Annotation
The family of this 40-nucleotide sequence from Melghiribacillus thermohalophilus is "Ribosomal protein L19 leader". The organism belongs to Melghiribacillus, within Bacteria. The base pairs follow the family's consensus structure, which was predicted with CMfinder. Rfam describes the family as follows. This family is a putative r-protein leader autoregulatory structure found in B. subtilis and other low-GC Gram-positive bacteria. It is located in the 5' untranslated regions of mRNAs encoding ribosomal protein L19 (rplS). The match comes from Rfam's covariance-model search (40 bits). Rfam links the family to the GO term regulation of gene expression.
[Rfam]
RNA sequence: ACGAUGUUCCGCUGCUCUUAAGAUCUGGCAUGAACAUUGG
Numbered sequence: 001a002c003g004a005u006g007u008u009c010c011g012c013u014g015c016u017c018u019u020a021a022g023a024u025c026u027g028g029c030a031u032g033a034a035c036a037u038u039g040g
Base pairs, nucleotide, nucleotide: 003038004037005036006035007034008033009032013030014029015028016027